[Rfam]
Rfam assigns this 100-nucleotide RNA from Clostridiales bacterium S5-A14a to the family "Bacterial small signal recognition particle RNA". Lineage of the source: Bacteria > Bacillati > Bacillota > Clostridia > Anaerovoracaceae. On this family, see Rosenblad et al., Nucleic Acids Res 2003: "SRPDB: Signal Recognition Particle Database".
RNA sequence: GUUUGGGUCCUGCGCAAUAAGACACCAUGAACCUUGUCAGGUCCGGAAGGAAGCAGCAAUAAGUGGAGGCUCUUAUGUGCCGCAGCUAAGCCUUCUCCAU
Numbered sequence: 001g002u003u004u005g006g007g008u009c010c011u012g013c014g015c016a017a018u019a020a021g022a023c024a025c026c027a028u029g030a031a032c033c034u035u036g037u038c039a040g041g042u043c044c045g046g047a048a049g050g051a052a053g054c055a056g057c058a059a060u061a062a063g064u065g066g067a068g069g070c071u072c073u074u075a076u077g078u079g080c081c082g083c084a085g086c087u088a089a090g091c092c093u094u095c096u097c098c099a100u
Stems, first nucleotide, its partner, number of pairs: 005093004010085005015077001017076006023068001025066004034059004042051003
The base pairs follow the family's consensus structure, which is taken from published work. It is annotated as a non-coding RNA gene.